[Rfam]
A member of the RNA family "Manganese Mn2+ riboswitch aptamer (yybP-ykoY)" from Staphylococcus aureus, 128 nucleotides long. Gene Ontology term of the family: manganese ion binding. The sequence is in the family's curated seed alignment. Taxonomically the source falls in Staphylococcus (Bacteria, Bacillati, Bacillota, Caryophanales). A reference for the family is Argaman et al. (2001), "Novel small RNA-encoding genes in the intergenic regions of Escherichia coli", Curr Biol.
RNA sequence: CAUUUUGUCAGAGGGGAGUAACUUAAGAAUCAUGACCGUAUAAAUGAUUCGACACUUUAUCGUCAUUACGAAGAUAUCUUCCGGUAAAGUGGGCAAUUAAAUUGCUUAGUGAGACCUUUGCUAUUUAU
Numbered sequence: 001c002a003u004u005u006u007g008u009c010a011g012a013g014g015g016g017a018g019u020a021a022c023u024u025a026a027g028a029a030u031c032a033u034g035a036c037c038g039u040a041u042a043a044a045u046g047a048u049u050c051g052a053c054a055c056u057u058u059a060u061c062g063u064c065a066u067u068a069c070g071a072a073g074a075u076a077u078c079u080u081c082c083g084g085u086a087a088a089g090u091g092g093g094c095a096a097u098u099a100a101a102u103u104g105c106u107u108a109g110u111g112a113g114a115c116c117u118u119u120g121c122u123a124u125u126u127a128u
Stems, first nucleotide, its partner, number of pairs: 027050005053091010070081004092106006